Record summary: Shown here is a 103-nucleotide sequence from Gadus morhua, a member of the family "Vault RNA". It is annotated as a non-coding RNA gene. A search with the family's covariance model found it, with a score of 54 bits. On this family, see Stadler et al., Mol Biol Evol 2009: "Evolution of Vault RNAs". The source organism's lineage runs through Eukaryota, Craniata, Teleostomi, Gadariae and Gadus. From the family's description: This family of RNAs are found as part of the enigmatic vault ribonucleoprotein complex.
RNA sequence: GCGCUGGCUUAGCUCAUCGGUUACUUCCAUGUCACUAUUGUAUCAGCGGCGGUGGCCUUCGUGGCUACUGCUGAUCGAACCGCGAGCGCUGUCCAGCGUUUUG
Number, nucleotide and partner (000 for none) at each position: 001g000002c098003g097004c096005u095006g094007g093008c000009u000010u000011a000012g087013c086014u085015c084016a000017u000018c082019g081020g080021u000022u000023a000024c000025u079026u078027c077028c000029a075030u000031g000032u000033c000034a000035c000036u000037a000038u000039u000040g000041u000042a000043u000044c000045a000046g000047c000048g000049g000050c000051g000052g000053u000054g000055g000056c000057c000058u000059u000060c000061g000062u000063g000064g000065c000066u000067a000068c000069u000070g000071c000072u000073g000074a000075u029076c000077g027078a026079a025080c020081c019082g018083c000084g015085a014086g013087c012088g000089c000090u000091g000092u000093c007094c006095a005096g004097c003098g002099u000100u000101u000102u000103g000